[Rfam]
RNA sequence: AUCCCGAGCCACCAUAUAGGUUGCAAGAGUGGAACGGGAAGUCCUAUAGA
Numbered sequence: 001a002u003c004c005c006g007a008g009c010c011a012c013c014a015u016a017u018a019g020g021u022u023g024c025a026a027g028a029g030u031g032g033a034a035c036g037g038g039a040a041g042u043c044c045u046a047u048a049g050a
Stems, first nucleotide, its partner, number of pairs: 002038003009032002013027001016047005
RNA: Exoribonuclease-resistant RNA (xrRNA) plant-infecting virus (class 3)
Organism: Polerovirus SCYLV